mir-10 microRNA precursor family: a 75-nucleotide RNA from Neolamprologus brichardi.
[Rfam]
RNA sequence: ACAUGUAUACCCUGUAGAACCGAAUUUGUGUGAAGUACAAGCAGUCGCAAAUACGUCUCUACAGGAAUACAUGGG
Dot-bracket structure: .((((((..((....(((..((.(((((((...............))))))).))..)))...))..))))))..
It scores 65 bits against the family's covariance model.